[Rfam]
RNA: Ribosomal protein L10 leader
Organism: Clostridium sartagoforme
RNA sequence: UUAAAAAGAAUACUGAUUCCAAAGACAGUAGGUGCCGAAAGGUUUAAAUAAUUGCCUACCGAGGAACGCCAAGGUAAGUAAUUAUUUGUGGUCUUCCUAUGUCUUAUGGGAAGGCCUUUCUUAAUAUAAAA
Numbered sequence: 001u002u003a004a005a006a007a008g009a010a011u012a013c014u015g016a017u018u019c020c021a022a023a024g025a026c027a028g029u030a031g032g033u034g035c036c037g038a039a040a041g042g043u044u045u046a047a048a049u050a051a052u053u054g055c056c057u058a059c060c061g062a063g064g065a066a067c068g069c070c071a072a073g074g075u076a077a078g079u080a081a082u083u084a085u086u087u088g089u090g091g092u093c094u095u096c097c098u099a100u101g102u103c104u105u106a107u108g109g110g111a112a113g114g115c116c117u118u119u120c121u122u123a124a125u126a127u128a129a130a131a
Stems, first nucleotide, its partner, number of pairs: 028059006034043003090116010